[Rfam]
RNA sequence: UAUGGGAUAUGAUGCUAAUAUACAGACAGAUUGUCAAAGGCACAAAAUGCUGAUUAUCUGUAUUUGCACGUCAGUCUGACCCAAA
Number, nucleotide and partner (000 for none) at each position: 001u085002a000003u083004g082005g081006g080007a000008u000009a000010u000011g000012a000013u000014g000015c000016u000017a000018a000019u000020a000021u000022a000023c000024a000025g000026a000027c000028a000029g000030a000031u000032u000033g000034u000035c000036a000037a000038a000039g000040g000041c000042a000043c000044a000045a000046a000047a000048u000049g000050c000051u000052g000053a000054u000055u000056a000057u000058c000059u000060g000061u000062a000063u000064u000065u000066g000067c000068a000069c000070g000071u000072c000073a000074g000075u000076c000077u000078g000079a000080c006081c005082c004083a003084a000085a001

Small nucleolar RNA Z122: an 85-nucleotide RNA sequence from Cephalotus follicularis. The family's RNA type in Rfam is C/D-box small nucleolar RNA.